Rfam assigns this 172-nucleotide sequence from Anaerovibrio lipolyticus to the family "Group II catalytic intron D1-D4-3".
Rfam's curators write: Group II introns are found in rRNA, tRNA and mRNA of organelles in fungi, plants and protists, and also in mRNA in bacteria.
The organism belongs to Anaerovibrio, within Bacteria.
RNA sequence: UCCACCGUGAGGCGGAAUCUGAAGGAAGCCGGCGGCAAAUCUCUGGCCUGACGAACAGAAAUCGCAUAAAGGCUACUAUUGAGGAUAAGGUCGCAUAACGGGUUGAAGUCCAAUAGCUACACGGAAUCAAUGGUAGUAAAUGCGGCAGGUAGGUGGAGGGAAAGAAACGUGU
Numbered sequence: 001u002c003c004a005c006c007g008u009g010a011g012g013c014g015g016a017a018u019c020u021g022a023a024g025g026a027a028g029c030c031g032g033c034g035g036c037a038a039a040u041c042u043c044u045g046g047c048c049u050g051a052c053g054a055a056c057a058g059a060a061a062u063c064g065c066a067u068a069a070a071g072g073c074u075a076c077u078a079u080u081g082a083g084g085a086u087a088a089g090g091u092c093g094c095a096u097a098a099c100g101g102g103u104u105g106a107a108g109u110c111c112a113a114u115a116g117c118u119a120c121a122c123g124g125a126a127u128c129a130a131u132g133g134u135a136g137u138a139a140a141u142g143c144g145g146c147a148g149g150u151a152g153g154u155g156g157a158g159g160g161a162a163a164g165a166a167a168c169g170u171g172u
Base pairs, nucleotide, nucleotide: 001016002015003014005012006011028172029171032168036164040159041158042157043156044155045154046150047149048148049147050146062145063144064143065142066141067140072137073136074135076133077132078131079130080129081128082127083111084110085109086108089104090103091102092101